This 198-nucleotide RNA sequence from Fukomys damarensis belongs to the Rfam family "Small Cajal body specific RNA 16". NCBI's taxonomy places the organism under Eukaryota, Metazoa, Deuterostomia, Glires, Fukomys. Rfam describes the family as follows. scaRNAs are a specific class of small nuclear RNAs which localise to the Cajal bodies and guide the modification of RNA polymerase II transcribed spliceosomal RNAs U1, U2, U4, U5 and U12. It is annotated as a small Cajal body RNA. Pairs were carried over by alignment from the consensus structure, which was predicted with RNAfold. A reference for the family is Darzacq et al. (2002), "Cajal body-specific small nuclear RNAs: a novel class of 2'-O-methylation and pseudouridylation guide RNAs", EMBO J. It scores 147 bits against the family's covariance model.
[Rfam]
RNA sequence: CUAGUCUGGGGAAAGGCUCCUGUGUGGUUGAACACACACACAACCCUCUCACACCCCGGUGGUGGAUGCAGCCUUGUACUAGGCAGCCUGACCCUGACCUAGAAUAAAUUCCCAGGGAGACUCUUCACUGGGUUUUGAAGUACAGGUGUGAACAUUCUAGCAGCAGUUUGAUGAUCACGUAUGAUACUGCAAACAGAA
Numbered sequence: 001c002u003a004g005u006c007u008g009g010g011g012a013a014a015g016g017c018u019c020c021u022g023u024g025u026g027g028u029u030g031a032a033c034a035c036a037c038a039c040a041c042a043a044c045c046c047u048c049u050c051a052c053a054c055c056c057c058g059g060u061g062g063u064g065g066a067u068g069c070a071g072c073c074u075u076g077u078a079c080u081a082g083g084c085a086g087c088c089u090g091a092c093c094c095u096g097a098c099c100u101a102g103a104a105u106a107a108a109u110u111c112c113c114a115g116g117g118a119g120a121c122u123c124u125u126c127a128c129u130g131g132g133u134u135u136u137g138a139a140g141u142a143c144a145g146g147u148g149u150g151a152a153c154a155u156u157c158u159a160g161c162a163g164c165a166g167u168u169u170g171a172u173g174a175u176c177a178c179g180u181a182u183g184a185u186a187c188u189g190c191a192a193a194c195a196g197a198a
Base pairs, nucleotide, nucleotide: 004098005097006096008094009093010092015088016087017086018085019083020082021081022080024079025078026073027072028071029070030069032067111132112131113130116126117125118124134193135192136191137190139188140187141186142185143183144182149177150176151175153173154172155171156170159168160167161166
Dot-bracket structure: ...(((.(((....((((((((.(((((((.(..................................).)))))....)))))).))))...))).)))............(((..(((.....)))...))).((((.((((((....(((.((((..(((....))).)))).)))....)).)))).)))).....